[Rfam]
RNA: Small nucleolar RNA snoR99
Organism: Microthlaspi erraticum
RNA sequence: GUGCUAAUAGGAUUGAACGUAGUCCCUCACAUCAUAAUCCAUCUGUUUCACUUUGUCAGCAGUCUCAAUUGGUUUCUCGCUGAUCAUUUUAGGAUGGGAAAUAC
Numbered sequence: 001g002u003g004c005u006a007a008u009a010g011g012a013u014u015g016a017a018c019g020u021a022g023u024c025c026c027u028c029a030c031a032u033c034a035u036a037a038u039c040c041a042u043c044u045g046u047u048u049c050a051c052u053u054u055g056u057c058a059g060c061a062g063u064c065u066c067a068a069u070u071g072g073u074u075u076c077u078c079g080c081u082g083a084u085c086a087u088u089u090u091a092g093g094a095u096g097g098g099a100a101a102u103a104c
Base pairs, nucleotide, nucleotide: 038098039097040096041095042094043093055084056083057082058081059080060079062077